[Rfam]
RNA: Group II catalytic intron D1-D4-1
RNA sequence: CUGAAAUCAAAGCAAUUUGAUUUGAUCGUAUAACAGAAGUCAGCAGAAGACAUAGUAGGUGGUUCCUUCCUUGUACCACUGAAGGUC
Numbered sequence: 001c002u003g004a005a006a007u008c009a010a011a012g013c014a015a016u017u018u019g020a021u022u023u024g025a026u027c028g029u030a031u032a033a034c035a036g037a038a039g040u041c042a043g044c045a046g047a048a049g050a051c052a053u054a055g056u057a058g059g060u061g062g063u064u065c066c067u068u069c070c071u072u073g074u075a076c077c078a079c080u081g082a083a084g085g086u087c
Base pairs, nucleotide, nucleotide: 004023005022006021007020008019009018010017011016040047041046049087050086051085058080059079060078061077062076063075